RNA sequence: GGUUUAAAACCCAGUUACUCAAGGUAAUUUGGAGUUUCCAACCUUUCAAGAGAAAGUGUUGGCGAAUCGAAUUUUUGCAAAGCUUCUUCGGGGUUUCCGUUGAAGCGAU
Numbered sequence: 001g002g003u004u005u006a007a008a009a010c011c012c013a014g015u016u017a018c019u020c021a022a023g024g025u026a027a028u029u030u031g032g033a034g035u036u037u038c039c040a041a042c043c044u045u046u047c048a049a050g051a052g053a054a055a056g057u058g059u060u061g062g063c064g065a066a067u068c069g070a071a072u073u074u075u076u077g078c079a080a081a082g083c084u085u086c087u088u089c090g091g092g093g094u095u096u097c098c099g100u101u102g103a104a105g106c107g108a109u
Stems, first nucleotide, its partner, number of pairs: 007037002010032001013029002016026003039061004043056005084107001086105006092098002
This 109-nucleotide RNA sequence from Caenorhabditis bovis belongs to the Rfam family "SL2 RNA". Rfam classes the family as a non-coding RNA gene. It scores 72 bits against the family's covariance model. From the family's description: This family represents SL2 RNA. SL2 RNA is involved in trans splicing in lower eukaryotes. Trans-splicing is a form of RNA processing. Its family is annotated with mRNA trans splicing, via spliceosome in the Gene Ontology.